[Rfam]
RNA sequence: GAUACUUGAAUGCAAAAUUGGUGUCAUCCCAGUGCUCCGACACUGGGAUCCAGGAAAUUUGAUUUCAAACAAGUGCAUCAGAUAGUUGUAUAGUAAAGACUGGAUUCCAGUGUCAAACACUGGAAUGACAUCAUUUGCUAUGUAAGCU
Numbered sequence: 001g002a003u004a005c006u007u008g009a010a011u012g013c014a015a016a017a018u019u020g021g022u023g024u025c026a027u028c029c030c031a032g033u034g035c036u037c038c039g040a041c042a043c044u045g046g047g048a049u050c051c052a053g054g055a056a057a058u059u060u061g062a063u064u065u066c067a068a069a070c071a072a073g074u075g076c077a078u079c080a081g082a083u084a085g086u087u088g089u090a091u092a093g094u095a096a097a098g099a100c101u102g103g104a105u106u107c108c109a110g111u112g113u114c115a116a117a118c119a120c121u122g123g124a125a126u127g128a129c130a131u132c133a134u135u136u137g138c139u140a141u142g143u144a145a146g147c148u
Base pairs, nucleotide, nucleotide: 012143013142014141016139022130023129024128025127026126027125029123030122031121032120033119034118036116039114040113041112042111043110044109045108046107047106048105049104050103051102052101053100
The family of this 148-nucleotide RNA from Trichonephila clavata is "Wolbachia sRNA 46".
Lineage of the source: Eukaryota > Ecdysozoa > Araneoidea > Nephilidae > Trichonephila.